[Rfam]
RNA sequence: GUCAAUAACCCAUCACUAAAGUGACGGGCUUGAAAAAGCCUUUAUUGAUUAGACUAAGUAUUAAAUUACUACGUUAUUAUAGUUAUCAUACCCUAGAAUAUUUAUCCUAGUUCUAGGCUCUAUGCAGGCACUGUAAACAUCUCUGAGGGUAGGAGAAGUCAACCUGAUUUGUAGGUUUUACCUAAAAGCUACUAUAACAUUGUCGAAGGAUAACUAAC
Numbered sequence: 001g002u003c004a005a006u007a008a009c010c011c012a013u014c015a016c017u018a019a020a021g022u023g024a025c026g027g028g029c030u031u032g033a034a035a036a037a038g039c040c041u042u043u044a045u046u047g048a049u050u051a052g053a054c055u056a057a058g059u060a061u062u063a064a065a066u067u068a069c070u071a072c073g074u075u076a077u078u079a080u081a082g083u084u085a086u087c088a089u090a091c092c093c094u095a096g097a098a099u100a101u102u103u104a105u106c107c108u109a110g111u112u113c114u115a116g117g118c119u120c121u122a123u124g125c126a127g128g129c130a131c132u133g134u135a136a137a138c139a140u141c142u143c144u145g146a147g148g149g150u151a152g153g154a155g156a157a158g159u160c161a162a163c164c165u166g167a168u169u170u171g172u173a174g175g176u177u178u179u180a181c182c183u184a185a186a187a188g189c190u191a192c193u194a195u196a197a198c199a200u201u202g203u204c205g206a207a208g209g210a211u212a213a214c215u216a217a218c
Stems, first nucleotide, its partner, number of pairs: 001049008010028002013024001015022002029038003052204003056200001057070004073198005080191004088123002092117008102213007125166004132161002137159002140156004144151002